Rfam assigns this 48-nucleotide RNA sequence from Streptomyces sparsogenes to the family "raiA-hairpin RNA".

RNA sequence: CGCCAAGCCGGAGGCUCCGGAACACCCCGGAGCCCAGUGCACAACGGA
Numbered sequence: 001c002g003c004c005a006a007g008c009c010g011g012a013g014g015c016u017c018c019g020g021a022a023c024a025c026c027c028c029g030g031a032g033c034c035c036a037g038u039g040c041a042c043a044a045c046g047g048a
Base pairs, nucleotide, nucleotide: 013034014033015032016031017030018029019028020027
The family's consensus secondary structure is taken from published work. Taxonomically the source falls in Streptomyces sparsogenes (Bacteria, Bacillati, Kitasatosporales, Streptomycetaceae).